The family of this 74-nucleotide RNA from Brassicogethes aeneus is "mir-124 microRNA precursor family". The family's consensus secondary structure was predicted with PFOLD. The family has 122 seed sequences and 2,215 matches in Rfam 15.1. On this family, see Lai et al., Genome Biol 2003: "Computational identification of Drosophila microRNA genes".
RNA sequence: UUCUCCUAGUGUUCACUGUGAGCUUUUAUGUCUUUUAAUAUUUAUCAUAAGGCACGCGGUGAAUGCCAAGAGCA
Numbered sequence: 001u002u003c004u005c006c007u008a009g010u011g012u013u014c015a016c017u018g019u020g021a022g023c024u025u026u027u028a029u030g031u032c033u034u035u036u037a038a039u040a041u042u043u044a045u046c047a048u049a050a051g052g053c054a055c056g057c058g059g060u061g062a063a064u065g066c067c068a069a070g071a072g073c074a
Base pairs, nucleotide, nucleotide: 003072004071005070009066010065011064012063013062014061015060016059018057019056020055023052024051025050027049028048029047030046